Shown here is a 109-nucleotide RNA from Cebus imitator, a member of the family "Y RNA". NCBI's taxonomy places the organism under Eukaryota, Deuterostomia, Dipnotetrapodomorpha, Boreoeutheria, Cebus. Rfam classes the family as a non-coding RNA gene. Rfam's curators write: Y RNAs are components of the Ro ribonucleoprotein particle (Ro RNP), in association with Ro60 and La proteins. The Y RNAs and Ro60 and La proteins are well conserved, but the function of the Ro RNP is not known. In humans the RNA component can be one of four small RNAs -- hY1, hY3, hY4 and hY5. These small RNAs are predicted to fold into a conserved secondary structure containing three stem structures. The largest of the four, hY1, contains an additional hairpin. This family includes a significant number of annotated pseudogenes and the model is expected to discriminate poorly between real and Y RNA related pseudogenes. A search with the family's covariance model found it, with a score of 49 bits. The base pairs follow the family's consensus structure, which is taken from published work. A reference for the family is Teunissen et al. (2000), "Conserved features of Y RNAs: a comparison of experimentally derived secondary structures", Nucleic Acids Res.
[Rfam]
Nucleotides: 109
Base pairs, nucleotide, nucleotide: 001105002104003103005101007099008098010097011096014093015092016088017087018086020084021083043067044066
Number, partner (000 for none) and nucleotide at each position: 001105g002104g003103c004000a005101g006000a007099u008098c009000u010097g011096a012000a013000g014093g015092u016088a017087g018086u019000a020084a021083g022000u023000u024000a025000u026000u027000u028000u029000a030000a031000u032000u033000g034000a035000u036000u037000g038000u039000u040000c041000a042000c043067a044066g045000u046000u047000a048000c049000a050000g051000a052000u053000a054000g055000c056000a057000u058000u059000c060000u061000u062000u063000g064000u065000u066044c067043u068000a069000c070000u071000c072000c073000u074000u075000c076000c077000c078000c079000u080000c081000u082000u083021c084020u085000c086018a087017c088016u089000a090000c091000u092015g093014c094000a095000u096011u097010u098008g099007g100000c101005u102000a103003g104002u105001c106000u107000u108000u109000u